The record is a 167-nucleotide RNA from Clostridium butyricum, which matches "Lysine riboswitch aptamer" in Rfam. Riboswitches are metabolite binding domains within certain messenger RNAs that serve as precision sensors for their corresponding targets. Pairs were carried over by alignment from the consensus structure, which is taken from published work.

[Rfam]
RNA sequence: ACCUGAGGUAGAGGUGCUGUGAUAAAUAGUAAAUAUAAUGAGUCUGGUAGACUAUGACUUAUAUUGAAAGGUAUUACGGCCGAAGGAAUAAGUUAAACCAAAGCUUAUUUCUGGGUAUUCAUAAAAUAUGUGGAUAACUGUCACGAAAGUGUUGAGCUACAAGGCAU
Numbered sequence: 001a002c003c004u005g006a007g008g009u010a011g012a013g014g015u016g017c018u019g020u021g022a023u024a025a026a027u028a029g030u031a032a033a034u035a036u037a038a039u040g041a042g043u044c045u046g047g048u049a050g051a052c053u054a055u056g057a058c059u060u061a062u063a064u065u066g067a068a069a070g071g072u073a074u075u076a077c078g079g080c081c082g083a084a085g086g087a088a089u090a091a092g093u094u095a096a097a098c099c100a101a102a103g104c105u106u107a108u109u110u111c112u113g114g115g116u117a118u119u120c121a122u123a124a125a126a127u128a129u130g131u132g133g134a135u136a137a138c139u140g141u142c143a144c145g146a147a148a149g150u151g152u153u154g155a156g157c158u159a160c161a162a163g164g165c166a167u
Stems, first nucleotide, its partner, number of pairs: 016080009032065007084112011113139002116136008147167001